[Rfam]
RNA sequence: AGCCAUGCCGUGAGCACAUAGCGAACUAUUCUUUCGCGUUUUACUAAAGAAUACCAUGUGCACGCUGCUAUUAAUGGCAUACGCCAAUUUUUGGAGGGGUUCUCAUUUUUGAAGACC
Numbered sequence: 001a002g003c004c005a006u007g008c009c010g011u012g013a014g015c016a017c018a019u020a021g022c023g024a025a026c027u028a029u030u031c032u033u034u035c036g037c038g039u040u041u042u043a044c045u046a047a048a049g050a051a052u053a054c055c056a057u058g059u060g061c062a063c064g065c066u067g068c069u070a071u072u073a074a075u076g077g078c079a080u081a082c083g084c085c086a087a088u089u090u091u092u093g094g095a096g097g098g099g100u101u102c103u104c105a106u107u108u109u110u111g112a113a114g115a116c117c
Base pairs, nucleotide, nucleotide: 003077004076005075006074008067010065011064012063014061015060016059017058018057027053028052029051030050031049032048033047034046098116100114101113
RNA: U5 spliceosomal RNA